The family of this 101-nucleotide RNA sequence is "Small nucleolar RNA snoR109". Pairs were carried over by alignment from the consensus structure, which was predicted with WAR. The family's RNA type in Rfam is H/ACA-box small nucleolar RNA. Gene Ontology terms of the family: RNA processing and nucleolus. On this family, see Marker et al., Curr Biol 2002: "Experimental RNomics: identification of 140 candidates for small non-messenger RNAs in the plant Arabidopsis thaliana".
[Rfam]
RNA sequence: CGGCUGUAGCUAGAUUGAAUAAGAAGCUAUCGGCCGGUGGUCGCGUAGAGGGAUUUAGAUCUCUCCGGUCGAUUCAUCUGCUUACCGAGUUUCUUACAUUU
Numbered sequence: 001c002g003g004c005u006g007u008a009g010c011u012a013g014a015u016u017g018a019a020u021a022a023g024a025a026g027c028u029a030u031c032g033g034c035c036g037g038u039g040g041u042c043g044c045g046u047a048g049a050g051g052g053a054u055u056u057a058g059a060u061c062u063c064u065c066c067g068g069u070c071g072a073u074u075c076a077u078c079u080g081c082u083u084a085c086c087g088a089g090u091u092u093c094u095u096a097c098a099u100u101u
Stems, first nucleotide, its partner, number of pairs: 021095008032082003036078004040073004